[Rfam]
RNA: Acido-Lenti-1 RNA
RNA sequence: CCCGGGGUUCCCACCCCGGGCUACACAAGGCCGCCCCUCCGGGGCU
Numbered sequence: 001c002c003c004g005g006g007g008u009u010c011c012c013a014c015c016c017c018g019g020g021c022u023a024c025a026c027a028a029g030g031c032c033g034c035c036c037c038u039c040c041g042g043g044g045c046u
Stems, first nucleotide, its partner, number of pairs: 001020008033045005